[Rfam]
RNA sequence: GAAAAUAAAGGAGCAAUAACCACUUUCUUGUUCUAAACAAGAUGGGGUAUUGCUCCUUUAU
Numbered sequence: 001g002a003a004a005a006u007a008a009a010g011g012a013g014c015a016a017u018a019a020c021c022a023c024u025u026u027c028u029u030g031u032u033c034u035a036a037a038c039a040a041g042a043u044g045g046g047g048u049a050u051u052g053c054u055c056c057u058u059u060a061u
Base pairs, nucleotide, nucleotide: 007059008058009057010056011055012054013053014052015051016050017049018048025041026040029039030038
Dot-bracket structure: ......((((((((((((......((..((.......))))......))))))))))))..